A member of the RNA family "TPP riboswitch aptamer (THI element)" from Cardiobacterium valvarum, 92 nucleotides long. Rfam describes the family as follows. Vitamin B(1) in its active form thiamin pyrophosphate (TPP) is an essential coenzyme that is synthesised by coupling of pyrimidine and thiazole moieties in bacteria. The family's consensus secondary structure is taken from published work.
RNA sequence: CUCCGCUUGUCGGGGUGUUCCUAUGGAACUGAGAAAUACCCGUAGAACCUGAAACGGUUAGCGCCGUCGGAGGGAACAAGGUUCACGCCGGU
Numbered sequence: 001c002u003c004c005g006c007u008u009g010u011c012g013g014g015g016u017g018u019u020c021c022u023a024u025g026g027a028a029c030u031g032a033g034a035a036a037u038a039c040c041c042g043u044a045g046a047a048c049c050u051g052a053a054a055c056g057g058u059u060a061g062c063g064c065c066g067u068c069g070g071a072g073g074g075a076a077c078a079a080g081g082u083u084c085a086c087g088c089c090g091g092u
Base pairs, nucleotide, nucleotide: 006080007079008078009077010076011042012041013040014039016036017029018028019027020026021025048073049072050071054067055066056065057064